[Rfam]
RNA: Ribosomal protein L10 leader
RNA sequence: AAAUAGAAAACAUUUAUACCGUAGACAGCAGGAGCUCUUAAAAGCUUAAUUUCCUGCCGAGGUAAUCGCGAUAUAUAUAACGUUUAGCGUUCGCUAUUCGAUAUUGCGCCUCCAUGUCUACUUUCAGAUGUGGAGGCUUUAUUAUUGUCGG
Numbered sequence: 001a002a003a004u005a006g007a008a009a010a011c012a013u014u015u016a017u018a019c020c021g022u023a024g025a026c027a028g029c030a031g032g033a034g035c036u037c038u039u040a041a042a043a044g045c046u047u048a049a050u051u052u053c054c055u056g057c058c059g060a061g062g063u064a065a066u067c068g069c070g071a072u073a074u075a076u077a078u079a080a081c082g083u084u085u086a087g088c089g090u091u092c093g094c095u096a097u098u099c100g101a102u103a104u105u106g107c108g109c110c111u112c113c114a115u116g117u118c119u120a121c122u123u124u125c126a127g128a129u130g131u132g133g134a135g136g137c138u139u140u141a142u143u144a145u146u147g148u149c150g151g
Stems, first nucleotide, its partner, number of pairs: 028057006034045003109136010